[Rfam]
RNA sequence: AAUCUGCACCAGGGGUGCCCAUGCCUGCAUCAUGAUUGGCCUUUUGGCCACAAUGGCAGGAUUGGCUGAGAAAGACCCUUUGAACCUGAACAGGUUAAAACCUGCGUAGGGAGUGUGCAAGUUUUGUUUU
Numbered sequence: 001a002a003u004c005u006g007c008a009c010c011a012g013g014g015g016u017g018c019c020c021a022u023g024c025c026u027g028c029a030u031c032a033u034g035a036u037u038g039g040c041c042u043u044u045u046g047g048c049c050a051c052a053a054u055g056g057c058a059g060g061a062u063u064g065g066c067u068g069a070g071a072a073a074g075a076c077c078c079u080u081u082g083a084a085c086c087u088g089a090a091c092a093g094g095u096u097a098a099a100a101c102c103u104g105c106g107u108a109g110g111g112a113g114u115g116u117g118c119a120a121g122u123u124u125u126g127u128u129u130u
Base pairs, nucleotide, nucleotide: 006118007117008116009115011079012078013077014076016073017066018065019064021062085110086109087108088107091104092103093102094101